[Rfam]
RNA: Small nucleolar RNA Z118/Z121/Z120
Organism: Triticum aestivum
RNA sequence: AGUUUGCUGUGAUGAAUCACUAGGACAGUAUAGCAAGGCGGCUCUUAAAAAAGGUCCCUUCUUUGAUUAUAAAUCCUAAACAGAUCAUAAAUUAUGAGCAAAGA
Numbered sequence: 001a002g003u004u005u006g007c008u009g010u011g012a013u014g015a016a017u018c019a020c021u022a023g024g025a026c027a028g029u030a031u032a033g034c035a036a037g038g039c040g041g042c043u044c045u046u047a048a049a050a051a052a053g054g055u056c057c058c059u060u061c062u063u064u065g066a067u068u069a070u071a072a073a074u075c076c077u078a079a080a081c082a083g084a085u086c087a088u089a090a091a092u093u094a095u096g097a098g099c100a101a102a103g104a
Base pairs, nucleotide, nucleotide: 003102004101005100006099007098033062035060036059037058038057